This 103-nucleotide RNA from Caminicella sporogenes belongs to the Rfam family "SAM riboswitch aptamer (S box leader)".
[Rfam]
RNA sequence: GCCUUAUCAAGAGAGACGGAGGGACUAGGCCCUAUGAAGUCCGGCAACCGGUACUAUGUACACGGUGCUAAUUCCUACAGAAUAUCAUUCUGAAAGAUGAGGA
Numbered sequence: 001g002c003c004u005u006a007u008c009a010a011g012a013g014a015g016a017c018g019g020a021g022g023g024a025c026u027a028g029g030c031c032c033u034a035u036g037a038a039g040u041c042c043g044g045c046a047a048c049c050g051g052u053a054c055u056a057u058g059u060a061c062a063c064g065g066u067g068c069u070a071a072u073u074c075c076u077a078c079a080g081a082a083u084a085u086c087a088u089u090c091u092g093a094a095a096g097a098u099g100a101g102g103a
Base pairs, nucleotide, nucleotide: 002102003101004100005099006098007097008096013042015041016040017039021032022031023030026077027076028075029074043069044068045067046066048065049064051061052060053059054058073095078092079091080090081089082088083087
The source organism's lineage runs through Bacteria, Bacillota, Peptostreptococcales, Caminicella and Caminicella sporogenes. The match comes from Rfam's covariance-model search (87 bits). About the family: The SAM riboswitch is found upstream of a number of genes which code for proteins involved in methionine or cysteine biosynthesis in Gram-positive bacteria.